The family of this 111-nucleotide sequence from Rossellomorea vietnamensis is "SAM riboswitch aptamer (S box leader)". A search with the family's covariance model found it, with a score of 94 bits. Pairs were carried over by alignment from the consensus structure, which is taken from published work. Taxonomically the source falls in Rossellomorea (Bacteria, Bacillati, Bacillota, Bacillaceae).
[Rfam]
Nucleotides: 111
Stems, first nucleotide, its partner, number of pairs: 001111008013041001015040003021031003025081004042073004047069002049065004077103001082100006
Number, partner (000 for none) and nucleotide at each position: 001111c002110u003109c004108u005107u006106a007105u008104c009000a010000a011000g012000a013041g014000c015040g016039g017038c018000g019000g020000a021031g022030g023029g024000a025081u026080a027079g028078g029023c030022c031021c032000g033000a034000u035000g036000a037000a038017g039016c040015c041013c042073g043072g044071c045070a046000a047069c048068c049065u050064g051063c052062a053000g054000g055000a056000u057000c058000a059000g060000u061000c062052u063051g064050u065049a066000a067000a068048g069047g070045u071044g072043c073042c074000a075000a076000u077103u078028c079027c080026u081025a082100c083099a084098g085097a086096u087095u088000c089000c090000a091000u092000g093000u094000g095087g096086a097085u098084c099083u100082g101000g102000a103077a104008g105007a106006u107005a108004a109003g110002g111001g